[Rfam]
RNA sequence: AGAGUAGUAUCUAUAUGAACUACAUCUUUCACUCUUUUUUAUUGAAAAGAAAUACUAUUCUGCCUUGAUCCGGGCAUGGACUAGGACAGAGGA
Numbered sequence: 001a002g003a004g005u006a007g008u009a010u011c012u013a014u015a016u017g018a019a020c021u022a023c024a025u026c027u028u029u030c031a032c033u034c035u036u037u038u039u040u041a042u043u044g045a046a047a048a049g050a051a052a053u054a055c056u057a058u059u060c061u062g063c064c065u066u067g068a069u070c071c072g073g074g075c076a077u078g079g080a081c082u083a084g085g086a087c088a089g090a091g092g093a
Base pairs, nucleotide, nucleotide: 001027002026003025004023005022006021007020008019010018011017060089061088062087063085064084065083067081069080070079071078

Description:
Shown here is a 93-nucleotide RNA sequence from Priestia filamentosa, a member of the family "pan motif". By type it is a cis-regulatory element. A search with the family's covariance model found it, with a score of 65 bits. Lineage of the source: Bacteria > Bacillati > Caryophanales > Bacillaceae > Priestia.